The family of this 79-nucleotide RNA from Granulicella pectinivorans is "CyVA-1 RNA". About the family: Cyanobacteria, Acidobacteria (1 example), Verrucomicrobia (1 example). The family's RNA type in Rfam is small RNA.
[Rfam]
RNA sequence: GCAGGGGAGCGGGAUUUUCGACCUUUCUCCCGCCUGCCACCGGCCCAAGGAGAAGGUCUCUGCAGCCGGUGGACCCUGC
Number, nucleotide and partner (000 for none) at each position: 001g079002c078003a077004g076005g075006g074007g000008a000009g033010c032011g031012g030013g000014a000015u000016u000017u000018u000019c000020g000021a000022c000023c000024u000025u000026u000027c000028u000029c000030c012031c011032g010033c009034c000035u000036g000037c000038c071039a070040c069041c068042g067043g066044c065045c000046c000047a000048a000049g000050g000051a000052g000053a000054a000055g000056g000057u000058c000059u000060c000061u000062g000063c000064a000065g044066c043067c042068g041069g040070u039071g038072g000073a000074c006075c005076c004077u003078g002079c001
NCBI's taxonomy places the organism under Bacteria, Pseudomonadati, Terriglobia, Terriglobales, Granulicella.